The family of this 94-nucleotide RNA from Digitaria exilis is "Small nucleolar RNA R16".
Rfam 15.1 lists 884 matches to the family in 222 species.

[Rfam]
RNA sequence: UUUGGCAUGUGAUGUGCAAAAUCUUUAUCCUACACACUUAAUGGAAAUACUGCCAUGUGUGGACCAAAAACUCCGCUUAUUAUCUGAUGCCUUU
Dot-bracket structure: ...((((................................................................................))))...